[Rfam]
RNA: Stem loopII regulatory element in POLB
RNA sequence: UUCCCACUAGGAGUCCUAAUUUAUUUCUUAACCUUUGCUAUGUAAGGGUUUUGGUGUUUUUAAGUGAUCGCUUCUUCUCCAGGCU
Numbered sequence: 001u002u003c004c005c006a007c008u009a010g011g012a013g014u015c016c017u018a019a020u021u022u023a024u025u026u027c028u029u030a031a032c033c034u035u036u037g038c039u040a041u042g043u044a045a046g047g048g049u050u051u052u053g054g055u056g057u058u059u060u061u062a063a064g065u066g067a068u069c070g071c072u073u074c075u076u077c078u079c080c081a082g083g084c085u
Stems, first nucleotide, its partner, number of pairs: 009078004017062003025054002031049008
Dot-bracket structure: ........((((....(((.....((....((((((((...))))))))...)).....)))............)))).......